[Rfam]
RNA sequence: UGGCCAGAUGAUGAGAAUGGAUCUUACAUCUCACGACGGUCAUCUGAGAUGCUUUUAACCAGUGUCUAGGUUGAUGCAAAUCCUGACACUGAUGGCU
Numbered sequence: 001u002g003g004c005c006a007g008a009u010g011a012u013g014a015g016a017a018u019g020g021a022u023c024u025u026a027c028a029u030c031u032c033a034c035g036a037c038g039g040u041c042a043u044c045u046g047a048g049a050u051g052c053u054u055u056u057a058a059c060c061a062g063u064g065u066c067u068a069g070g071u072u073g074a075u076g077c078a079a080a081u082c083c084u085g086a087c088a089c090u091g092a093u094g095g096c097u
Stems, first nucleotide, its partner, number of pairs: 002096001004094001050064003
This 97-nucleotide sequence from Ensete ventricosum belongs to the Rfam family "Small nucleolar RNA Z161/Z228". It is annotated as a C/D-box small nucleolar RNA. The family's consensus secondary structure was predicted with PFOLD. The source organism's lineage runs through Eukaryota, Viridiplantae, Mesangiospermae, Musaceae and Ensete. Rfam links the family to the GO terms nucleolus and RNA processing.